[Rfam]
RNA sequence: AGCGCGGUAGAGCAGUUCGGUAGCUCGCUGGCCCCAUAUCUCAGAGGUCACCGGUUCGAGUCCGAUCCGCGCUA
Numbered sequence: 001a002g003c004g005c006g007g008u009a010g011a012g013c014a015g016u017u018c019g020g021u022a023g024c025u026c027g028c029u030g031g032c033c034c035c036a037u038a039u040c041u042c043a044g045a046g047g048u049c050a051c052c053g054g055u056u057c058g059a060g061u062c063c064g065a066u067c068c069g070c071g072c073u074a
Base pairs, nucleotide, nucleotide: 001073002072003071004070005069006068007067010026011025012024013023028044029043030042031041050066052064053063054062
tRNA: a 74-nucleotide RNA from Nocardia terpenica. The source organism's lineage runs through Bacteria, Actinomycetes, Mycobacteriales, Nocardiaceae and Nocardia. The family's consensus secondary structure is taken from published work.